[Rfam]
c-di-AMP riboswitch aptamer (ydaO/yuaA leader): a 167-nucleotide RNA from Cellulomonas triticagri. The match comes from Rfam's covariance-model search (56 bits). Taxonomically the source falls in Cellulomonas (Bacteria, Actinomycetes, Micrococcales, Cellulomonadaceae).

RNA sequence: CCGUACGACUCGCCGGCAGGGGCGGGGGAACCACAAGCGGGCGCCGUCUCCGGACAGCGUCCUUGGGGUGAAGCCACGCGGUGCAGCCGGUCUCGACCGGAAGCCACGUGGCCGGGUAUCUCCACCCGAACCCGACAGCUCACCUCGUAGGCGCCAGGAGAGGCUUG
Numbered sequence: 001c002c003g004u005a006c007g008a009c010u011c012g013c014c015g016g017c018a019g020g021g022g023c024g025g026g027g028g029a030a031c032c033a034c035a036a037g038c039g040g041g042c043g044c045c046g047u048c049u050c051c052g053g054a055c056a057g058c059g060u061c062c063u064u065g066g067g068g069u070g071a072a073g074c075c076a077c078g079c080g081g082u083g084c085a086g087c088c089g090g091u092c093u094c095g096a097c098c099g100g101a102a103g104c105c106a107c108g109u110g111g112c113c114g115g116g117u118a119u120c121u122c123c124a125c126c127c128g129a130a131c132c133c134g135a136c137a138g139c140u141c142a143c144c145u146c147g148u149a150g151g152c153g154c155c156a157g158g159a160g161a162g163g164c165u166u167g
Base pairs, nucleotide, nucleotide: 001151002150006021022148023147024146025145026144027143032065033064066133067132068131074111075110076109077108114127115126116125117124